[Rfam]
RNA: c-di-GMP-I riboswitch aptamer
RNA sequence: AUUUGACAAAGGCAAAAAUGCUGAAAAGUGUUGACGCAAAGCUUCAGGUCUAAGGUUUUUAAACUAAGACGGCUGGGUUGCUAAG
Numbered sequence: 001a002u003u004u005g006a007c008a009a010a011g012g013c014a015a016a017a018a019u020g021c022u023g024a025a026a027a028g029u030g031u032u033g034a035c036g037c038a039a040a041g042c043u044u045c046a047g048g049u050c051u052a053a054g055g056u057u058u059u060u061a062a063a064c065u066a067a068g069a070c071g072g073c074u075g076g077g078u079u080g081c082u083a084a085g
Stems, first nucleotide, its partner, number of pairs: 012037002017032006040079004045075003048070003055064003